Overview: The family of this 76-nucleotide RNA from Cavia porcellus is "Small nucleolar RNA SNORD83". The family's consensus secondary structure was predicted with PFOLD. Taxonomically the source falls in Cavia (Eukaryota, Opisthokonta, Teleostomi, Dipnotetrapodomorpha). The match comes from Rfam's covariance-model search (61 bits). On this family, see Jady and Kiss, Nucleic Acids Res 2000: "Characterisation of the U83 and U84 small nucleolar RNAs: two novel 2'-O-ribose methylation guide RNAs that lack complementarities to ribosomal RNAs".
[Rfam]
RNA sequence: GCCAGAUGAUGUUCGUUGGCUGCAGGAGCACUUGGUGCGAGGACGACUGUUUACCUAUCACCCAUGCCUGAUGGCU
Numbered sequence: 001g002c003c004a005g006a007u008g009a010u011g012u013u014c015g016u017u018g019g020c021u022g023c024a025g026g027a028g029c030a031c032u033u034g035g036u037g038c039g040a041g042g043a044c045g046a047c048u049g050u051u052u053a054c055c056u057a058u059c060a061c062c063c064a065u066g067c068c069u070g071a072u073g074g075c076u
Base pairs, nucleotide, nucleotide: 001075002074003073004072028038029037030036031035